[Rfam]
RNA sequence: AAAGUGUCAAGAGUUGGUAACUCCACCACCGUUGGCGUGAUGAUAAUGCCAAUGGGGUAAGAGUUGCCCGUUUCUCGGCGCGGA
Numbered sequence: 001a002a003a004g005u006g007u008c009a010a011g012a013g014u015u016g017g018u019a020a021c022u023c024c025a026c027c028a029c030c031g032u033u034g035g036c037g038u039g040a041u042g043a044u045a046a047u048g049c050c051a052a053u054g055g056g057g058u059a060a061g062a063g064u065u066g067c068c069c070g071u072u073u074c075u076c077g078g079c080g081c082g083g084a
Stems, first nucleotide, its partner, number of pairs: 004081005010075003016069002019065005027057001029055009